The record is a 312-nucleotide RNA from Chinchilla lanigera, which matches "7SK RNA" in Rfam.

[Rfam]
RNA sequence: GGAUGUGAGGGCGAUCUGGCUGCGACAUCUGUCACCCCAUUGAUCGCCAGGGUUGAUUCGGCUGAUCUGGCUGGCUAGGUGGGUGUCCCCUUCCUCCCUCAAUGCUCCAUGUGUGUCCCUCCCGAAGCUGCGUGCUCGGUCGAAGAGGACGACCACCCCCGAUAGAGGAGGACCGUUCCUCGGUCAAGGGUAUACGAGUAGCUGCGUUCCCCUGCUAGAACCUUCAAACAAGCUCUCAAAGAGACAUAGAUGCAAGCACAAAAGCCAAAACUAUAAAACAUAGGGGAAACGCUUUGUGCACACAAAGUGGUU
Numbered sequence: 001g002g003a004u005g006u007g008a009g010g011g012c013g014a015u016c017u018g019g020c021u022g023c024g025a026c027a028u029c030u031g032u033c034a035c036c037c038c039a040u041u042g043a044u045c046g047c048c049a050g051g052g053u054u055g056a057u058u059c060g061g062c063u064g065a066u067c068u069g070g071c072u073g074g075c076u077a078g079g080u081g082g083g084u085g086u087c088c089c090c091u092u093c094c095u096c097c098c099u100c101a102a103u104g105c106u107c108c109a110u111g112u113g114u115g116u117c118c119c120u121c122c123c124g125a126a127g128c129u130g131c132g133u134g135c136u137c138g139g140u141c142g143a144a145g146a147g148g149a150c151g152a153c154c155a156c157c158c159c160c161g162a163u164a165g166a167g168g169a170g171g172a173c174c175g176u177u178c179c180u181c182g183g184u185c186a187a188g189g190g191u192a193u194a195c196g197a198g199u200a201g202c203u204g205c206g207u208u209c210c211c212c213u214g215c216u217a218g219a220a221c222c223u224u225c226a227a228a229c230a231a232g233c234u235c236u237c238a239a240a241g242a243g244a245c246a247u248a249g250a251u252g253c254a255a256g257c258a259c260a261a262a263a264g265c266c267a268a269a270a271c272u273a274u275a276a277a278a279c280a281u282a283g284g285g286g287a288a289a290c291g292c293u294u295u296g297u298g299c300a301c302a303c304a305a306a307g308u309g310g311u312u
Stems, first nucleotide, its partner, number of pairs: 001108003006101006013093002018090002024087010035074002037070003042067004046062003116171002118168004122139004127135002140162003147158002201265003208258001214257002222252001224250002228247001288311001290309008